[Rfam]
RNA sequence: GUGCUGUGAUGCAAUCAUCAACACAUCAUUCUGAAAAAAAAAAAGUGUGGAAGAUUUUUGACUGAGCACC
Numbered sequence: 001g002u003g004c005u006g007u008g009a010u011g012c013a014a015u016c017a018u019c020a021a022c023a024c025a026u027c028a029u030u031c032u033g034a035a036a037a038a039a040a041a042a043a044a045g046u047g048u049g050g051a052a053g054a055u056u057u058u059u060g061a062c063u064g065a066g067c068a069c070c
Stems, first nucleotide, its partner, number of pairs: 001069004
RNA: Small nucleolar RNA SNORD63
Organism: Phrynocephalus forsythii